[Rfam]
Rfam assigns this 74-nucleotide RNA from Alligator mississippiensis to the family "Mammalian CPEB3 ribozyme".
The source organism's lineage runs through Eukaryota, Metazoa, Euteleostomi, Archosauria and Alligator.
A search with the family's covariance model found it, with a score of 38 bits.

RNA sequence: UGAGAGUUCAAGGCCACAGCAGAAGCGCUUAUGGUGUAGCCAUAUCAGAUUCCAAUGAAUUUACAAAUUCUGCU
Dot-bracket structure: ...........[[[...((((((((((.......))).]]].....((((((....)))))).....)))))))